[Rfam]
RNA sequence: CCGUGCUAGGUGGGGGAAUAGCGGAACCUUGUAACUUGCAAUCCGCUCUAGCAAGACUGAAUUCCUUCCCGAGGCUGUUCGAAUGUAUGGUCUGCCUCUUGCACGUAGUGUUGACGUUUGGGUCCUGCGCAAUGAAAAUCCAUGAACCAUGUCAGGUCCGGAAGGAAGCAGCAUUAAGUGGAAUCUUUCAUGUGCCGUAGGGUUGCCUAGGCUGAGCUGGCGACAGGAGUAACGCAUAUGUUCGGCAGUCGGAGGAAGGUGCACGG
Numbered sequence: 001c002c003g004u005g006c007u008a009g010g011u012g013g014g015g016g017a018a019u020a021g022c023g024g025a026a027c028c029u030u031g032u033a034a035c036u037u038g039c040a041a042u043c044c045g046c047u048c049u050a051g052c053a054a055g056a057c058u059g060a061a062u063u064c065c066u067u068c069c070c071g072a073g074g075c076u077g078u079u080c081g082a083a084u085g086u087a088u089g090g091u092c093u094g095c096c097u098c099u100u101g102c103a104c105g106u107a108g109u110g111u112u113g114a115c116g117u118u119u120g121g122g123u124c125c126u127g128c129g130c131a132a133u134g135a136a137a138a139u140c141c142a143u144g145a146a147c148c149a150u151g152u153c154a155g156g157u158c159c160g161g162a163a164g165g166a167a168g169c170a171g172c173a174u175u176a177a178g179u180g181g182a183a184u185c186u187u188u189c190a191u192g193u194g195c196c197g198u199a200g201g202g203u204u205g206c207c208u209a210g211g212c213u214g215a216g217c218u219g220g221c222g223a224c225a226g227g228a229g230u231a232a233c234g235c236a237u238a239u240g241u242u243c244g245g246c247a248g249u250c251g252g253a254g255g256a257a258g259g260u261g262c263a264c265g266g
Stems, first nucleotide, its partner, number of pairs: 001266006009058003012030004019023001035055005064259006073250005080244010093231002097228005105221002107218003116212008124201006130192002133190005139182005149174004157166003